[Rfam]
RNA: Small Cajal body-specific RNA 7
RNA sequence: UGGAAGUGAUGAAAUAGAGAUAAUUGGAUGUCAUUUUGACUGGAGUGUGUGUGAUACGUGGAAUUUAAACCAAAUCAGACUGGGGGUGGGGUGUGGGGAAUGUGUGUGUGUGCGCAUGUGUUAAAGAGGCUUUAAAUGGGGGCACUGAUAAUGCAGUGCUGAUUUCCGGAGUGCAUCUGAGGCAUGUUGUUAAAUUCUGGGGUGCCACUUUACAACAUUGCCAAUGAUUAAAGCCCAAAACACGCCCACCAAGACAAGCCUAGGCAUCCUAAAUCUCUAACAGGUUCAUUAAUGAAAGUGAUCCUGUGAUCUGAUCCGA
Numbered sequence: 001u002g003g004a005a006g007u008g009a010u011g012a013a014a015u016a017g018a019g020a021u022a023a024u025u026g027g028a029u030g031u032c033a034u035u036u037u038g039a040c041u042g043g044a045g046u047g048u049g050u051g052u053g054a055u056a057c058g059u060g061g062a063a064u065u066u067a068a069a070c071c072a073a074a075u076c077a078g079a080c081u082g083g084g085g086g087u088g089g090g091g092u093g094u095g096g097g098g099a100a101u102g103u104g105u106g107u108g109u110g111u112g113c114g115c116a117u118g119u120g121u122u123a124a125a126g127a128g129g130c131u132u133u134a135a136a137u138g139g140g141g142g143c144a145c146u147g148a149u150a151a152u153g154c155a156g157u158g159c160u161g162a163u164u165u166c167c168g169g170a171g172u173g174c175a176u177c178u179g180a181g182g183c184a185u186g187u188u189g190u191u192a193a194a195u196u197c198u199g200g201g202g203u204g205c206c207a208c209u210u211u212a213c214a215a216c217a218u219u220g221c222c223a224a225u226g227a228u229u230a231a232a233g234c235c236c237a238a239a240a241c242a243c244g245c246c247c248a249c250c251a252a253g254a255c256a257a258g259c260c261u262a263g264g265c266a267u268c269c270u271a272a273a274u275c276u277c278u279a280a281c282a283g284g285u286u287c288a289u290u291a292a293u294g295a296a297a298g299u300g301a302u303c304c305u306g307u308g309a310u311c312u313g314a315u316c317c318g319a
Base pairs, nucleotide, nucleotide: 001318002317003316004315185217186216187215188214189213190212192210195204197202